[Rfam]
RNA sequence: CUUCCCUACGGGGCGCUCAGGUCCGCCGCAUCUCCUGGGUCCGUGGGGCCGGCCAGAGCGGAAGCAAGCCGAAGAGUGGCCUCCUCGUAUGCUUGCUUCCGCCGGCCACCUU
Numbered sequence: 001c002u003u004c005c006c007u008a009c010g011g012g013g014c015g016c017u018c019a020g021g022u023c024c025g026c027c028g029c030a031u032c033u034c035c036u037g038g039g040u041c042c043g044u045g046g047g048g049c050c051g052g053c054c055a056g057a058g059c060g061g062a063a064g065c066a067a068g069c070c071g072a073a074g075a076g077u078g079g080c081c082u083c084c085u086c087g088u089a090u091g092c093u094u095g096c097u098u099c100c101g102c103c104g105g106c107c108a109c110c111u112u
Stems, first nucleotide, its partner, number of pairs: 004048007016039006051107004056102001059101005
Background:
A member of the RNA family "EcpR1" from Roseibium suaedae, 112 nucleotides long. Perviously named SmelC291, SmrC10, or Sra33. According to its overproduction phenotype it was renamed Elongated Cell Phenotype RNA1. Induced by stress,EcpR1 negatively regulates cell cycle master regulatory genes dnaA and gcrA at post-transcriptional level by base pairing between its strongly conserved GC-rich loop and the target mRNAs. It's regulation is hfq-independent but requires RNase E to regulate dnaA. The match comes from Rfam's covariance-model search (82 bits). Taxonomically the source falls in Roseibium (Bacteria, Pseudomonadati, Pseudomonadota, Stappiaceae).